The record is a 391-nucleotide RNA from Pseudomassariella vexata, which matches "Group I catalytic intron" in Rfam. About the family: Group I catalytic introns are large self-splicing ribozymes. They catalyse their own excision from mRNA, tRNA and rRNA precursors in a wide range of organisms. It scores 78 bits against the family's covariance model. Pairs were carried over by alignment from the consensus structure, which is taken from published work.
RNA sequence: AACUAUGACUCAAAAGUUGGUUUAUUUUUGAAAUAAGAGGGUCCAGCGGCUUCUCUCGCAGAAGUACCGCUAAUGGGGUUACCCAGUAGCUACCCUGUAGCGAACGGUCGAGGCUACCCUGUAGCCGCCCUGUAACACCGUCAAAUUGCGGGGACGUCCUAAGGCCCACUGCUACCAAGCCCGCGUCGAAAGGCGUGGGUGGCCCGGGAGAGACACCUGGGGUACGGUAAAAACGCGGUGGGAUGGAACAAUGGGCAACCUGCAGCCAAGUCCUACGGCCGGUGGCCACGGAUGCAGUUCAACGACUAGACGGCGGUGGGUUACCCCGGAGCUACCCUGUGGCUGCGCGGGUGGCUUAAGAUAUAGUCUGGCUGGCGUGCGAAAGCGGCCG
Numbered sequence: 001a002a003c004u005a006u007g008a009c010u011c012a013a014a015a016g017u018u019g020g021u022u023u024a025u026u027u028u029u030g031a032a033a034u035a036a037g038a039g040g041g042u043c044c045a046g047c048g049g050c051u052u053c054u055c056u057c058g059c060a061g062a063a064g065u066a067c068c069g070c071u072a073a074u075g076g077g078g079u080u081a082c083c084c085a086g087u088a089g090c091u092a093c094c095c096u097g098u099a100g101c102g103a104a105c106g107g108u109c110g111a112g113g114c115u116a117c118c119c120u121g122u123a124g125c126c127g128c129c130c131u132g133u134a135a136c137a138c139c140g141u142c143a144a145a146u147u148g149c150g151g152g153g154a155c156g157u158c159c160u161a162a163g164g165c166c167c168a169c170u171g172c173u174a175c176c177a178a179g180c181c182c183g184c185g186u187c188g189a190a191a192g193g194c195g196u197g198g199g200u201g202g203c204c205c206g207g208g209a210g211a212g213a214c215a216c217c218u219g220g221g222g223u224a225c226g227g228u229a230a231a232a233a234c235g236c237g238g239u240g241g242g243a244u245g246g247a248a249c250a251a252u253g254g255g256c257a258a259c260c261u262g263c264a265g266c267c268a269a270g271u272c273c274u275a276c277g278g279c280c281g282g283u284g285g286c287c288a289c290g291g292a293u294g295c296a297g298u299u300c301a302a303c304g305a306c307u308a309g310a311c312g313g314c315g316g317u318g319g320g321u322u323a324c325c326c327c328g329g330a331g332c333u334a335c336c337c338u339g340u341g342g343c344u345g346c347g348c349g350g351g352u353g354g355c356u357u358a359a360g361a362u363a364u365a366g367u368c369u370g371g372c373u374g375g376c377g378u379g380c381g382a383a384a385g386c387g388g389c390c391g
Stems, first nucleotide, its partner, number of pairs: 005025004010020004136318005142312001147264006157255003265298002270293004278286003302369001304368005320355007375389002378387003